RNA sequence: AGUGAGAAUAGAGGUGCAAAGACCAUUAGUACAUUAUCUGAGGAGAUGUAUCCGACGAUGAUAAUGGAAAGGGGGAUUUGCCGAAGCGGGAAAAAGUACAUCCUUUUUUCAGGCUGGUUCUGCAUUGAAUAAAUGCAGUGCUGUCAUAUAGUUAUUACUAUAUGGAGGGCUAUCUCACGC
Numbered sequence: 001a002g003u004g005a006g007a008a009u010a011g012a013g014g015u016g017c018a019a020a021g022a023c024c025a026u027u028a029g030u031a032c033a034u035u036a037u038c039u040g041a042g043g044a045g046a047u048g049u050a051u052c053c054g055a056c057g058a059u060g061a062u063a064a065u066g067g068a069a070a071g072g073g074g075g076a077u078u079u080g081c082c083g084a085a086g087c088g089g090g091a092a093a094a095a096g097u098a099c100a101u102c103c104u105u106u107u108u109u110c111a112g113g114c115u116g117g118u119u120c121u122g123c124a125u126u127g128a129a130u131a132a133a134u135g136c137a138g139u140g141c142u143g144u145c146a147u148a149u150a151g152u153u154a155u156u157a158c159u160a161u162a163u164g165g166a167g168g169g170c171u172a173u174c175u176c177a178c179g180c
Base pairs, nucleotide, nucleotide: 006175008173009172010171011170016081017080018079019078020077023074024073032066033065034064035063036062037061038060085115086114087113090110091109092108093107094106095105096104116142117141118140120138121137122136123135124134125133126132144165145164146163147162148161149160150159
RNA: Lysine riboswitch aptamer
Organism: Gracilibacillus halotolerans